[Rfam]
Nucleotides: 303
Base pairs, nucleotide, nucleotide: 001303002302003301004300007297008296009295012258013257014256015255016254021061022060023059024058034048035047036046037045038044071287072286073285074284075283081234082233083232084231091105092104093103094102095101106122107121108120109119110118111117123230124229125228126227127226129224143216144215260274261273262272263271264270265269
Number, partner (000 for none) and nucleotide at each position: 001303g002302u003301g004300g005000g006000a007297g008296g009295a010000a011000g012258c013257u014256c015255a016254u017000u018000g019000u020000a021061g022060a023059g024058g025000u026000c027000a028000c029000g030000u031000g032000c033000u034048g035047a036046g037045u038044g039000c040000u041000c042000g043000u044038c045037a046036c047035u048034c049000c050000a051000c052000c053000a054000a055000u056000c057000a058024c059023c060022u061021c062000g063000g064000g065000g066000a067000a068000g069000g070000u071287c072286u073285g074284a075283g076000a077000c078000a079000a080000g081234a082233g083232c084231c085000a086000a087000u088000a089000g090000c091105g092104a093103c094102c095101c096000u097000u098000g099000c100000a101095g102094g103093g104092u105091c106122u107121c108120a109119c110118c111117u112000g113000a114000u115000g116000c117111g118110g119109g120108u121107g122106a123230g124229c125228g126227a127226g128000c129224g130000a131000a132000c133000a134000g135000a136000a137000a138000g139000a140000a141000g142000g143216g144215c145000g146000g147000c148000u149000g150000a151000g152000c153000u154000g155000c156000u157000c158000a159000g160000c161000a162000g163000g164000a165000g166000a167000a168000g169000c170000c171000g172000u173000g174000c175000g176000g177000g178000g179000c180000a181000g182000c183000u184000u185000c186000c187000g188000u189000u190000c191000c192000g193000c194000c195000g196000g197000u198000g199000g200000a201000u202000g203000c204000g205000g206000c207000a208000c209000u210000c211000a212000g213000c214000g215144g216143c217000u218000u219000g220000g221000a222000a223000u224129c225000a226127c227126u228125c229124g230123c231084g232083g233082c234081u235000g236000g237000c238000g239000a240000a241000c242000u243000g244000a245000g246000u247000g248000c249000g250000a251000u252000g253000u254016a255015u256014g257013a258012g259000g260274u261273g262272g263271a264270g265269c266000a267000c268000g269265g270264c271263u272262c273261c274260a275000g276000a277000a278000c279000c280000c281000a282000a283075u284074u285073c286072a287071g288000a289000c290000u291000a292000c293000u294000c295009u296008c297007c298000c299000c300004c301003c302002a303001c

Shown here is a 303-nucleotide sequence from Betta splendens, a member of the family "Nuclear RNase P". By type it is a ribozyme. The match comes from Rfam's covariance-model search (225 bits). Lineage of the source: Eukaryota > Teleostomi > Actinopteri > Percomorphaceae > Betta.